[Rfam]
RNA: Potassium channel RNA editing signal
RNA sequence: GUGGGUUACGGAGACAUGCAUCCCGUCACUAUAGGGGGUAAAAUUGUGGGAUCUUUGUGCGCAAUCGCAGGUGUCCUGACCAUUGCCCUGCCUGUUCCCGUCAUCGUCUCCAAU
Numbered sequence: 001g002u003g004g005g006u007u008a009c010g011g012a013g014a015c016a017u018g019c020a021u022c023c024c025g026u027c028a029c030u031a032u033a034g035g036g037g038g039u040a041a042a043a044u045u046g047u048g049g050g051a052u053c054u055u056u057g058u059g060c061g062c063a064a065u066c067g068c069a070g071g072u073g074u075c076c077u078g079a080c081c082a083u084u085g086c087c088c089u090g091c092c093u094g095u096u097c098c099c100g101u102c103a104u105c106g107u108c109u110c111c112a113a114u
Stems, first nucleotide, its partner, number of pairs: 001114002004111002008107004013102003018097001020095002037077002040074001050062001